[Rfam]
Nucleotides: 096
Base pairs, nucleotide, nucleotide: 013096014095015094017092018091019090021088022034023033024032046083048081049080050079051078052077053076054075055074
Number, partner (000 for none) and nucleotide at each position: 001000u002000a003000c004000u005000g006000g007000c008000a009000a010000a011000a012000u013096c014095c015094g016000a017092u018091c019090c020000c021088u022034g023033c024032c025000u026000c027000c028000u029000c030000g031000u032024g033023g034022c035000g036000c037000u038000g039000c040000c041000g042000g043000a044000u045000g046083u047000c048081g049080g050079u051078c052077u053076u054075g055074g056000a057000g058000a059000g060000c061000c062000u063000u064000g065000c066000g067000c068000a069000c070000u071000c072000c073000g074055u075054c076053a077052a078051g079050a080049c081048c082000u083046a084000a085000c086000c087000a088021a089000a090019g091018g092017g093000a094015c095014g096013g

This 96-nucleotide RNA from Anopheles stephensi belongs to the Rfam family "drz-agam-1 ribozyme". For this family Rfam cites "Widespread occurrence of self-cleaving ribozymes" (Webb et al., Science, 2009). Gene Ontology term of the family: catalytic activity.